Rfam assigns this 136-nucleotide sequence from Carlito syrichta to the family "U8 small nucleolar RNA". It is annotated as a C/D-box small nucleolar RNA. Lineage of the source: Eukaryota > Chordata > Dipnotetrapodomorpha > Tarsiidae > Carlito. The match comes from Rfam's covariance-model search (111 bits).

[Rfam]
RNA sequence: UCAUCAUGGGGGAUAAUCCUUAACUCUUCCUCCUUUUGGAGGGCAGAUUAGAACAUGAUGAUUGGAGUUUACAUGAUGCAUAAUUAUUGUCUUUGCAUAAUCAGGAUUUGUAAUAUCCUUAUUGCUUCUAUCUGAU
Numbered sequence: 001u002c003a004u005c006a007u008g009g010g011g012g013a014u015a016a017u018c019c020u021u022a023a024c025u026c027u028u029c030c031u032c033c034u035u036u037u038g039g040a041g042g043g044c045a046g047a048u049u050a051g052a053a054c055a056u057g058a059u060g061a062u063u064g065g066a067g068u069u070u071a072c073a074u075g076a077u078g079c080a081u082a083a084u085u086a087u088u089g090u091c092u093u094u095g096c097a098u099a100a101u102c103a104g105g106a107u108u109u110g111u112a113a114u115a116u117c118c119u120u121a122u123u124g125c126u127u128c129u130a131u132c133u134g135a136u
Stems, first nucleotide, its partner, number of pairs: 024046002028043006075093002078090003081086001098124004103119003